[Rfam]
RNA: Small nucleolar RNA SNORD100
RNA sequence: GGUGCAUUACAUGAUGACAACUGGCUCCCUCUACUGAAACUGGCUGUGAAGGAAAUGCCAUGUCACCCUUCUGACUACACA
Numbered sequence: 001g002g003u004g005c006a007u008u009a010c011a012u013g014a015u016g017a018c019a020a021c022u023g024g025c026u027c028c029c030u031c032u033a034c035u036g037a038a039a040c041u042g043g044c045u046g047u048g049a050a051g052g053a054a055a056u057g058c059c060a061u062g063u064c065a066c067c068c069u070u071c072u073g074a075c076u077a078c079a080c081a
Stems, first nucleotide, its partner, number of pairs: 002080003008077002